[Rfam]
RNA sequence: AUUCAUCUUCGGGGCAGGGUGAAAUUCCCGAUCGGCGGUAAUUGAAGAAAUUCUUCAUAGCCCGCGAGCCGUAAGGUAGGAUUUGGUGUGAUUCCAAAGCCGACAGUAUAGUCUGGAUGGGAGAAGGUGAAG
Numbered sequence: 001a002u003u004c005a006u007c008u009u010c011g012g013g014g015c016a017g018g019g020u021g022a023a024a025u026u027c028c029c030g031a032u033c034g035g036c037g038g039u040a041a042u043u044g045a046a047g048a049a050a051u052u053c054u055u056c057a058u059a060g061c062c063c064g065c066g067a068g069c070c071g072u073a074a075g076g077u078a079g080g081a082u083u084u085g086g087u088g089u090g091a092u093u094c095c096a097a098a099g100c101c102g103a104c105a106g107u108a109u110a111g112u113c114u115g116g117a118u119g120g121g122a123g124a125a126g127g128u129g130a131a132g
Stems, first nucleotide, its partner, number of pairs: 003130008017029003031112002033102002035065004060100002070076001082098005104115003
Rfam assigns this 132-nucleotide RNA sequence from Paenisporosarcina antarctica to the family "FMN riboswitch aptamer (RFN element)".
The source organism's lineage runs through Bacteria, Bacillati, Bacillota, Bacilli and Paenisporosarcina.
A search with the family's covariance model found it, with a score of 120 bits.
Pairs were carried over by alignment from the consensus structure, which is taken from published work.